[Rfam]
RNA sequence: UUAGGCUCAGAGGAGUUAAAACCAUUUGCCUAAGGUCAUUUACUCUUUAGGUGUCUUUAUGUCUUCUGAUUCUAAAUUCUGUGUUUUUCUUGCUGUACAAGUCUGUGCUUAUUAUGUCAGAAUAUGUACAUAGGAAGAUCAUAAGU
Number, nucleotide and partner (000 for none) at each position: 001u076002u075003a073004g072005g071006c000007u000008c068009a067010g066011a065012g064013g063014a000015g000016u061017u000018a000019a058020a057021a000022c000023c000024a000025u000026u000027u053028g052029c051030c050031u049032a048033a047034g046035g045036u000037c000038a000039u000040u000041u000042a000043c000044u000045c035046u034047u033048u032049a031050g030051g029052u028053g027054u000055c000056u000057u020058u019059a000060u000061g016062u000063c013064u012065u011066c010067u009068g008069a000070u000071u005072c004073u003074a000075a002076a001077u000078u000079c000080u000081g000082u000083g139084u138085u137086u136087u135088u134089c133090u000091u130092g129093c000094u000095g000096u128097a127098c126099a125100a000101g000102u000103c000104u000105g117106u116107g115108c000109u000110u000111a000112u000113u000114a000115u107116g106117u105118c000119a000120g000121a000122a000123u000124a000125u099126g098127u097128a096129c092130a091131u000132a000133g089134g088135a087136a086137g085138a084139u083140c000141a000142u000143a000144a000145g000146u000
RNA: Small nucleolar RNA snoR136
Organism: Odocoileus virginianus